Description: This 149-nucleotide sequence from Paenibacillus sp. FSL H7-0737 belongs to the Rfam family "FMN riboswitch aptamer (RFN element)". The organism belongs to Paenibacillus, within Bacteria. Its family is annotated with FMN binding in the Gene Ontology.
[Rfam]
RNA sequence: CAAGAUUCUCGGGGUAGGGUGAAAUUCCCAACCGGCGGUAAUGUUCAAAGCGAACUGAGCCCGCGACUCACUUGUUCUGCUUGCAGAGAAGUGACUGAUCUGGUGUGAAUCCAGAGCCGACGGUAAAGUCCGGAUGGGAGAGGAUCAUA
Numbered sequence: 001c002a003a004g005a006u007u008c009u010c011g012g013g014g015u016a017g018g019g020u021g022a023a024a025u026u027c028c029c030a031a032c033c034g035g036c037g038g039u040a041a042u043g044u045u046c047a048a049a050g051c052g053a054a055c056u057g058a059g060c061c062c063g064c065g066a067c068u069c070a071c072u073u074g075u076u077c078u079g080c081u082u083g084c085a086g087a088g089a090a091g092u093g094a095c096u097g098a099u100c101u102g103g104u105g106u107g108a109a110u111c112c113a114g115a116g117c118c119g120a121c122g123g124u125a126a127a128g129u130c131c132g133g134a135u136g137g138g139a140g141a142g143g144a145u146c147a148u149a
Base pairs, nucleotide, nucleotide: 004146005145006144007143008142009141010140017029018028019027031129032128033119034118035064036063037062038061059117060116068094069093070092071091072090099115100114101113102112103111121132122131123130